[Rfam]
RNA: potC RNA
RNA sequence: AAAUGAUGCCCACGUCACUCUCCCUAGGAUUUUUACCCUUUCCUAGAAAUUGUCGUGGGCAUUAAAAG
Numbered sequence: 001a002a003a004u005g006a007u008g009c010c011c012a013c014g015u016c017a018c019u020c021u022c023c024c025u026a027g028g029a030u031u032u033u034u035a036c037c038c039u040u041u042c043c044u045a046g047a048a049a050u051u052g053u054c055g056u057g058g059g060c061a062u063u064a065a066a067a068g
Stems, first nucleotide, its partner, number of pairs: 005063010016052002025045005